[Rfam]
RNA sequence: UGCAAGUACAAGGUCAAAGCAGGAGCACUCACGGCAUGGGCUGUCAGACUCCACUGAAUCUGUGAAUUCUGCU
Numbered sequence: 001u002g003c004a005a006g007u008a009c010a011a012g013g014u015c016a017a018a019g020c021a022g023g024a025g026c027a028c029u030c031a032c033g034g035c036a037u038g039g040g041c042u043g044u045c046a047g048a049c050u051c052c053a054c055u056g057a058a059u060c061u062g063u064g065a066a067u068u069c070u071g072c073u
Stems, first nucleotide, its partner, number of pairs: 013041001014039002018073007025037001045062004050057002
Source information
A member of the RNA family "Mammalian CPEB3 ribozyme" from Crocodylus porosus, 73 nucleotides long. The mammalian CPEB3 ribozyme is a self cleaving RNA located in the second intron of the CPEB3 gene which belongs to a family of genes regulating messenger RNA polyadenylation. The organism belongs to Crocodylus, within Eukaryota. The base pairs follow the family's consensus structure, which is taken from published work. On this family, see Salehi-Ashtiani et al., Science 2006: "A genomewide search for ribozymes reveals an HDV-like sequence in the human CPEB3 gene".